U11 spliceosomal RNA: a 151-nucleotide RNA from Aedes aegypti. Rfam classes the family as a spliceosomal small nuclear RNA. Taxonomically the source falls in Stegomyia (Eukaryota, Protostomia, Culicidae, Aedes). The sequence is in the family's curated seed alignment.
RNA sequence: UAAAAGGGUGCUUGCUCUACGUUUAUAUGGCACACCUAAUUGUACUUCCAAUGGAAGUUCGGUUGGGUGAGGUAUGGUUAUCAAGACAUACCUAGCACAUAAUUUUUAAUUAGAAGACAGUUGACCGCUGCUUGCAUGCGUCGACGUCUUC
Numbered sequence: 001u002a003a004a005a006g007g008g009u010g011c012u013u014g015c016u017c018u019a020c021g022u023u024u025a026u027a028u029g030g031c032a033c034a035c036c037u038a039a040u041u042g043u044a045c046u047u048c049c050a051a052u053g054g055a056a057g058u059u060c061g062g063u064u065g066g067g068u069g070a071g072g073u074a075u076g077g078u079u080a081u082c083a084a085g086a087c088a089u090a091c092c093u094a095g096c097a098c099a100u101a102a103u104u105u106u107u108a109a110u111u112a113g114a115a116g117a118c119a120g121u122u123g124a125c126c127g128c129u130g131c132u133u134g135c136a137u138g139c140g141u142c143g144a145c146g147u148c149u150u151c
Stems, first nucleotide, its partner, number of pairs: 008098005013032004033069010044058005070093007115149004120145005126140003